[Rfam]
RNA sequence: GUCAACUACCCACCACUAAUCGGAGUACCGAUAUAGUGGGGGCUUGAAAGAGCCUAAUUGACCAGUCUAAGUGUUAAAUCACUACGUUUAAGGCAAGUGUUCAAGACCUACCAGAGAAUGCGUAGCUAGUUCUCUGCUCUAGAACUCAAAGGUUAAACAGGUUUAAGGGUUAAGCUAGUGCUUUUGAGAUAGUUACCGACCUUAAACAUUGACGAAGCUAACAUUAC
Numbered sequence: 001g002u003c004a005a006c007u008a009c010c011c012a013c014c015a016c017u018a019a020u021c022g023g024a025g026u027a028c029c030g031a032u033a034u035a036g037u038g039g040g041g042g043c044u045u046g047a048a049a050g051a052g053c054c055u056a057a058u059u060g061a062c063c064a065g066u067c068u069a070a071g072u073g074u075u076a077a078a079u080c081a082c083u084a085c086g087u088u089u090a091a092g093g094c095a096a097g098u099g100u101u102c103a104a105g106a107c108c109u110a111c112c113a114g115a116g117a118a119u120g121c122g123u124a125g126c127u128a129g130u131u132c133u134c135u136g137c138u139c140u141a142g143a144a145c146u147c148a149a150a151g152g153u154u155a156a157a158c159a160g161g162u163u164u165a166a167g168g169g170u171u172a173a174g175c176u177a178g179u180g181c182u183u184u185u186g187a188g189a190u191a192g193u194u195a196c197c198g199a200c201c202u203u204a205a206a207c208a209u210u211g212a213c214g215a216a217g218c219u220a221a222c223a224u225u226a227c
Base pairs, nucleotide, nucleotide: 001062002061003060004059005058007056008055010042011041013039014038015037016036017035018034043052044051045050065213066212067211069209070083071082072081073080086207087206088205089204090203091202092201093200108142109141112136113135114134115133116132117131118130119129123220124219125218126217127216145188146187147186148185149184150183151182152181153180157179158178160176161175162174163173164172165171166170
Annotation:
Shown here is a 227-nucleotide sequence from aff. Roholtiella sp. LEGE 12411, a member of the family "HNH endonuclease-associated RNA and ORF (HEARO) RNA". A search with the family's covariance model found it, with a score of 142 bits. The organism belongs to Roholtiella, within Bacteria. Rfam classes the family as a non-coding RNA gene.